Shown here is a 262-nucleotide part of an RNA from Halalkalicoccus jeotgali, a member of the family "Archaeal large subunit ribosomal RNA". Rfam's curators put it in the seed alignment. Taxonomically the source falls in Halalkalicoccus jeotgali (Archaea, Halobacteria, Halobacteriales, Halalkalicoccus). The base pairs follow the family's consensus structure, which is taken from published work. Its family is annotated with structural constituent of ribosome and ribosome in the Gene Ontology.
RNA sequence: GAGUGUACCUGUUUGGCGAGUCUAACCCGAGAACCGGGGAAGGCGUAGGGAAACCGAUAUGGCCGCAGUCUUACGACGAGGGCCACCGUGUUCAAGCGCGGGGAGUCAAACGGGUACGACCCGAAACCGGACGAUCUAUGCGCAUGCAAGGUGAAGCGUGCCGAAAGGCACGUGGAGGCCUGUUAGGGUUGGUGUCUUACAAUACCCUCCCGUGAUUUGCGUAUAGGGGUGAAAGGCCCAUCGAGUCCGGAAACAGCUGGUU
Numbered sequence: 001g002a003g004u005g006u007a008c009c010u011g012u013u014u015g016g017c018g019a020g021u022c023u024a025a026c027c028c029g030a031g032a033a034c035c036g037g038g039g040a041a042g043g044c045g046u047a048g049g050g051a052a053a054c055c056g057a058u059a060u061g062g063c064c065g066c067a068g069u070c071u072u073a074c075g076a077c078g079a080g081g082g083c084c085a086c087c088g089u090g091u092u093c094a095a096g097c098g099c100g101g102g103g104a105g106u107c108a109a110a111c112g113g114g115u116a117c118g119a120c121c122c123g124a125a126a127c128c129g130g131a132c133g134a135u136c137u138a139u140g141c142g143c144a145u146g147c148a149a150g151g152u153g154a155a156g157c158g159u160g161c162c163g164a165a166a167g168g169c170a171c172g173u174g175g176a177g178g179c180c181u182g183u184u185a186g187g188g189u190u191g192g193u194g195u196c197u198u199a200c201a202a203u204a205c206c207c208u209c210c211c212g213u214g215a216u217u218u219g220c221g222u223a224u225a226g227g228g229g230u231g232a233a234a235g236g237c238c239c240a241u242c243g244a245g246u247c248c249g250g251a252a253a254c255a256g257c258u259g260g261u262u
Stems, first nucleotide, its partner, number of pairs: 005117013020044004026038004048055002061084004068077003087100004120260002123257001127250006136226009146216001147214001149181004156173007186211003191207002194205002228238003